[Rfam]
RNA sequence: CCGGCCGGCCCGAAAGUCCCGCGGCCGUCCGCGCGCCAGCCGUUAGGCUGACCUGGUGCGCUUCCCAGGCCGGAAACGCAUAGCCGACAGCCGUCGCACCCGAGGGAGCUUCCCCAUG
Numbered sequence: 001c002c003g004g005c006c007g008g009c010c011c012g013a014a015a016g017u018c019c020c021g022c023g024g025c026c027g028u029c030c031g032c033g034c035g036c037c038a039g040c041c042g043u044u045a046g047g048c049u050g051a052c053c054u055g056g057u058g059c060g061c062u063u064c065c066c067a068g069g070c071c072g073g074a075a076a077c078g079c080a081u082a083g084c085c086g087a088c089a090g091c092c093g094u095c096g097c098a099c100c101c102g103a104g105g106g107a108g109c110u111u112c113c114c115c116a117u118g
Base pairs, nucleotide, nucleotide: 057080058079059078060077062075063074064073065072083097084096086095087094088093

Shown here is a 118-nucleotide RNA sequence from Streptomyces hoynatensis, a member of the family "Streptomyces-metH RNA".